[Rfam]
RNA sequence: CAUUAAUUAAAUAGUUUCACUCAUAUAAUCGCAGGGAUAUGGCCUGCAAGUUUCUACCGAAGCCCCGUAAAGGCUUCGACUAUGAGUGUCGAUAUAUUUGUG
Numbered sequence: 001c002a003u004u005a006a007u008u009a010a011a012u013a014g015u016u017u018c019a020c021u022c023a024u025a026u027a028a029u030c031g032c033a034g035g036g037a038u039a040u041g042g043c044c045u046g047c048a049a050g051u052u053u054c055u056a057c058c059g060a061a062g063c064c065c066c067g068u069a070a071a072g073g074c075u076u077c078g079a080c081u082a083u084g085a086g087u088g089u090c091g092a093u094a095u096a097u098u099u100g101u102g
Stems, first nucleotide, its partner, number of pairs: 018088008029049001031047005058078007
Rfam assigns this 102-nucleotide RNA from Bacillus sp. FJAT-18017 to the family "Purine riboswitch aptamer". The family's consensus secondary structure is taken from published work.